RNA sequence: GUGUCCCCUAGAGGUUCCCCAAACACUUCAUUGGGAAUUACUCUCUUUUCCAAGAAAGAGGUAAUCAGCACAAAUUCCUGCUGAAGUGUUUGGGGGAACUCCUGGGCUCAA
Numbered sequence: 001g002u003g004u005c006c007c008c009u010a011g012a013g014g015u016u017c018c019c020c021a022a023a024c025a026c027u028u029c030a031u032u033g034g035g036a037a038u039u040a041c042u043c044u045c046u047u048u049u050c051c052a053a054g055a056a057a058g059a060g061g062u063a064a065u066c067a068g069c070a071c072a073a074a075u076u077c078c079u080g081c082u083g084a085a086g087u088g089u090u091u092g093g094g095g096g097a098a099c100u101c102c103u104g105g106g107c108u109c110a111a
Base pairs, nucleotide, nucleotide: 006106007105008104011101012100013099015097016096017095018094019093020092021091022090023089024088025087026086027085028084029083030082032080033079034078035077036076037075038074039073
RNA: mir-395 microRNA precursor family